[Rfam]
RNA sequence: UGUCGAAGCCCCAUCUACAAAUGGAUAAGAUUUGGGUUGGGUCUUAGUAUAUAAGAUGUUUUGAAAGUAAAGGAGCAAUACUAACCCUUGUUCUUGGUAGACCAAGAAGUUGGUUACUGCUCCUUU
Number, nucleotide and partner (000 for none) at each position: 001u000002g000003u000004c000005g000006a000007a000008g000009c000010c000011c024012c023013a022014u021015c000016u000017a000018c000019a000020a000021a014022u013023g012024g011025a000026u000027a000028a000029g000030a000031u000032u000033u000034g000035g000036g000037u000038u000039g000040g000041g000042u000043c000044u000045u000046a000047g000048u000049a000050u000051a000052u000053a000054a000055g000056a000057u000058g000059u000060u000061u000062u000063g000064a000065a000066a000067g000068u000069a126070a125071a124072g123073g122074a121075g120076c119077a118078a000079u116080a115081c000082u000083a000084a000085c000086c112087c000088u000089u000090g000091u000092u107093c106094u105095u104096g000097g000098u000099a000100g000101a000102c000103c000104a095105a094106g093107a092108a000109g000110u000111u000112g086113g000114u000115u080116a079117c000118u077119g076120c075121u074122c073123c072124u071125u070126u069
RNA: Plastid-psbA-1 3UTR RNA
Organism: Pelargonium exstipulatum